Record summary
Rfam assigns this 113-nucleotide RNA sequence from Paenibacillus bovis to the family "Glycine riboswitch aptamer".
[Rfam]
RNA sequence: AUGAAGAUAGCGGGAGAGUCUGCGGAUGUAUGCGAUCCGCCACCGAAGGAGCAAGCCGGCGGGAAUGCCAGCCCCCGGUCAAUCUCUCAGGUACCAUGAACCGCUGCCGGACG
Numbered sequence: 001a002u003g004a005a006g007a008u009a010g011c012g013g014g015a016g017a018g019u020c021u022g023c024g025g026a027u028g029u030a031u032g033c034g035a036u037c038c039g040c041c042a043c044c045g046a047a048g049g050a051g052c053a054a055g056c057c058g059g060c061g062g063g064a065a066u067g068c069c070a071g072c073c074c075c076c077g078g079u080c081a082a083u084c085u086c087u088c089a090g091g092u093a094c095c096a097u098g099a100a101c102c103g104c105u106g107c108c109g110g111a112c113g
Stems, first nucleotide, its partner, number of pairs: 006108001008106006022040006042092003045088002049086003055079005